[Rfam]
RNA sequence: UAGCCAAAUCUGAGCAUCAGAAGACAUUUUGGUCUGCUUGGUGCAUGAUCUCUAUAGUUCUGAGA
Numbered sequence: 001u002a003g004c005c006a007a008a009u010c011u012g013a014g015c016a017u018c019a020g021a022a023g024a025c026a027u028u029u030u031g032g033u034c035u036g037c038u039u040g041g042u043g044c045a046u047g048a049u050c051u052c053u054a055u056a057g058u059u060c061u062g063a064g065a
Stems, first nucleotide, its partner, number of pairs: 014044005022035004

Shown here is a 65-nucleotide sequence from Peromyscus maniculatus, a member of the family "Small nucleolar RNA U2-19".
NCBI's taxonomy places the organism under Eukaryota, Teleostomi, Dipnotetrapodomorpha, Rodentia, Peromyscus maniculatus.
Rfam classes the family as a C/D-box small nucleolar RNA.
Rfam 15.1 lists 1,147 matches to the family in 531 species.